[Rfam]
RNA sequence: GGGCAAGAUGGGUGAAGUAGGCCCACACAUAAACGUGAUGCUCCUACUUCACUUAACCUUAUUCGCAUUGCAUGCUCAACGGUUAUCCUGCUCUGCGAGGCU
Numbered sequence: 001g002g003g004c005a006a007g008a009u010g011g012g013u014g015a016a017g018u019a020g021g022c023c024c025a026c027a028c029a030u031a032a033a034c035g036u037g038a039u040g041c042u043c044c045u046a047c048u049u050c051a052c053u054u055a056a057c058c059u060u061a062u063u064c065g066c067a068u069u070g071c072a073u074g075c076u077c078a079a080c081g082g083u084u085a086u087c088c089u090g091c092u093c094u095g096c097g098a099g100g101c102u
Stems, first nucleotide, its partner, number of pairs: 001093005007087003012052006019045003024040002026037003055084004065075004